Record summary:
The record is a 142-nucleotide RNA sequence from Mesocricetus auratus, which matches "Vault RNA" in Rfam. The literature on the family includes a 2009 paper in Mol Biol Evol by Stadler et al., "Evolution of Vault RNAs". It scores 77 bits against the family's covariance model. The family's RNA type in Rfam is non-coding RNA gene. The family's consensus secondary structure is taken from published work.

Nucleotides: 142
Stems, first nucleotide, its partner, number of pairs: 002137006013126004018122004026116005
Number, partner (000 for none) and nucleotide at each position: 001000g002137g003136a004135c005134u006133g007132g008000c009000u010000u011000u012000a013126g014125c015124u016123c017000a018122g019121c020120g021119g022000u023000u024000a025000c026116u027115u028114c029113g030112a031000c032000a033000g034000u035000g036000c037000u038000u039000u040000c041000u042000g043000c044000u045000u046000g047000u048000u049000a050000c051000u052000u053000a054000c055000a056000c057000u058000c059000g060000u061000g062000g063000u064000g065000u066000g067000u068000u069000c070000a071000a072000g073000c074000u075000u076000c077000g078000c079000c080000g081000c082000c083000a084000g085000c086000c087000c088000u089000u090000g091000c092000a093000a094000a095000g096000c097000c098000u099000g100000c101000g102000a103000g104000u105000g106000g107000u108000c109000g110000g111000c112030u113029c114028g115027a116026g117000a118000c119021c120020c121019g122018c123016g124015g125014g126013c127000g128000c129000u130000c131000u132007c133006c134005a135004g136003u137002c138000c139000u140000u141000u142000u